The family of this 591-nucleotide part of an RNA from Gemella sp. zg-570 is "Bacterial small subunit ribosomal RNA". The literature on the family includes a 2001 paper in Science by Yusupov et al., "Crystal structure of the ribosome at 5.5 A resolution". The match comes from Rfam's covariance-model search (1559 bits).

RNA sequence: UGACGGGGACCCGCACAAGCGGUGGAGUAUGUGGUUUAAUUCGAAGCAACGCGAAGAACCUUACCAAGUCUUGACAUACAGUGAAGAGAUAAGAGAUUAAAUUGUUAUUGCCUAUGGUAAUACACUGAUACAGGUGGUGCAUGGUUGUCGUCAGCUCGUGUCGUGAGAUGUUGGGUUAAGUCCCGCAACGAGCGCAACCCUUAUAACUAGUUGCCAGCAGUAAGAUGGGGACUCUAGAUAGACUGCCAGUGACAAACUGGAGGAAGGUGGGGAUGACGUCAAAUCAUCAUGCCCCUUAUGACUUGGGCUACACACGUACUACAAUGGAUAAGAACAAAGAGAAGCGACCUUGUAAAAGCAAGCCAACCUCACAAAACUAUUCUCAGUUCGGAUUGUAGUCUGCAACUCGACUACAUGAAGCUGGAAUCGCUAGUAAUCGCGGAUCAGAAUGUCGCGGUGAAUACGUUCCCGGGUCUUGUACACACCGCCCGUCACACCACGAGAGUUUAUAACACCCGAAGACGGUGGCCUAACCGCAAGGAGGGAGCCGGUCACGGUGGGGUAGAUGAUUGGGGUGAAGUCGUAACAAGG
Numbered sequence: 001u002g003a004c005g006g007g008g009a010c011c012c013g014c015a016c017a018a019g020c021g022g023u024g025g026a027g028u029a030u031g032u033g034g035u036u037u038a039a040u041u042c043g044a045a046g047c048a049a050c051g052c053g054a055a056g057a058a059c060c061u062u063a064c065c066a067a068g069u070c071u072u073g074a075c076a077u078a079c080a081g082u083g084a085a086g087a088g089a090u091a092a093g094a095g096a097u098u099a100a101a102u103u104g105u106u107a108u109u110g111c112c113u114a115u116g117g118u119a120a121u122a123c124a125c126u127g128a129u130a131c132a133g134g135u136g137g138u139g140c141a142u143g144g145u146u147g148u149c150g151u152c153a154g155c156u157c158g159u160g161u162c163g164u165g166a167g168a169u170g171u172u173g174g175g176u177u178a179a180g181u182c183c184c185g186c187a188a189c190g191a192g193c194g195c196a197a198c199c200c201u202u203a204u205a206a207c208u209a210g211u212u213g214c215c216a217g218c219a220g221u222a223a224g225a226u227g228g229g230g231a232c233u234c235u236a237g238a239u240a241g242a243c244u245g246c247c248a249g250u251g252a253c254a255a256a257c258u259g260g261a262g263g264a265a266g267g268u269g270g271g272g273a274u275g276a277c278g279u280c281a282a283a284u285c286a287u288c289a290u291g292c293c294c295c296u297u298a299u300g301a302c303u304u305g306g307g308c309u310a311c312a313c314a315c316g317u318a319c320u321a322c323a324a325u326g327g328a329u330a331a332g333a334a335c336a337a338a339g340a341g342a343a344g345c346g347a348c349c350u351u352g353u354a355a356a357a358g359c360a361a362g363c364c365a366a367c368c369u370c371a372c373a374a375a376a377c378u379a380u381u382c383u384c385a386g387u388u389c390g391g392a393u394u395g396u397a398g399u400c401u402g403c404a405a406c407u408c409g410a411c412u413a414c415a416u417g418a419a420g421c422u423g424g425a426a427u428c429g430c431u432a433g434u435a436a437u438c439g440c441g442g443a444u445c446a447g448a449a450u451g452u453c454g455c456g457g458u459g460a461a462u463a464c465g466u467u468c469c470c471g472g473g474u475c476u477u478g479u480a481c482a483c484a485c486c487g488c489c490c491g492u493c494a495c496a497c498c499a500c501g502a503g504a505g506u507u508u509a510u511a512a513c514a515c516c517c518g519a520a521g522a523c524g525g526u527g528g529c530c531u532a533a534c535c536g537c538a539a540g541g542a543g544g545g546a547g548c549c550g551g552u553c554a555c556g557g558u559g560g561g562g563u564a565g566a567u568g569a570u571u572g573g574g575g576u577g578a579a580g581u582c583g584u585a586a587c588a589a590g591g
Stems, first nucleotide, its partner, number of pairs: 001482002003479003007476007015466002019430005024322001026320008034311002040055004064306007077130002079127005086103002090099003106122006133295002136293004142289002144284003147280001149278002154193006160169003172185004199272004204240002207237004214229002218227002243263002246260005326382005332377001339370003344363002349358003389420001394415007436458007485590001487587001490583002495577004500572003505567006513559004521552001523550004529545003534541002